The family of this 79-nucleotide RNA from Flavobacterium sp. 9AF is "Flavo-1 RNA". By type it is a small RNA. The organism belongs to Flavobacterium, within Bacteria. The base pairs follow the family's consensus structure, which is taken from published work.
[Rfam]
RNA sequence: UUUUAGCCCUGAUGGGAACGGCAUCCUGUCAUUGCGAGGAACGAAGUAAUGACAGAUAUAGUGUACAGCAGGAUAUAGC
Number, nucleotide and partner (000 for none) at each position: 001u000002u000003u000004u000005a000006g000007c000008c000009c071010u070011g069012a000013u067014g066015g000016g000017a000018a062019c061020g000021g000022c000023a057024u056025c055026c000027u000028g053029u052030c051031a050032u049033u048034g047035c046036g000037a000038g000039g000040a000041a000042c000043g000044a000045a000046g035047u034048a033049a032050u031051g030052a029053c028054a000055g025056a024057u023058a000059u000060a000061g019062u018063g000064u000065a000066c014067a013068g000069c011070a010071g009072g000073a000074u000075a000076u000077a000078g000079c000